[Rfam]
RNA sequence: CCGGGACACCGACCAGACCCUUGGGCAGGGGCGGGGGACCCAGGUAAGUCGCCGUCCCCCACGGCUUGGGGUGAAGCCGCCAGCAGUGGCGGCCGGGCCACCUCCCGGUCCGAACCCGACAGCUCACCUCGCAGGCGUGCGGAGAGGGACU
Numbered sequence: 001c002c003g004g005g006a007c008a009c010c011g012a013c014c015a016g017a018c019c020c021u022u023g024g025g026c027a028g029g030g031g032c033g034g035g036g037g038a039c040c041c042a043g044g045u046a047a048g049u050c051g052c053c054g055u056c057c058c059c060c061a062c063g064g065c066u067u068g069g070g071g072u073g074a075a076g077c078c079g080c081c082a083g084c085a086g087u088g089g090c091g092g093c094c095g096g097g098c099c100a101c102c103u104c105c106c107g108g109u110c111c112g113a114a115c116c117c118g119a120c121a122g123c124u125c126a127c128c129u130c131g132c133a134g135g136c137g138u139g140c141g142g143a144g145a146g147g148g149a150c151u
Stems, first nucleotide, its partner, number of pairs: 001135002031132006041068005069117003077092004095111004
The family of this 151-nucleotide RNA from Kitasatospora sp. Root187 is "c-di-AMP riboswitch aptamer (ydaO/yuaA leader)". The match comes from Rfam's covariance-model search (65 bits).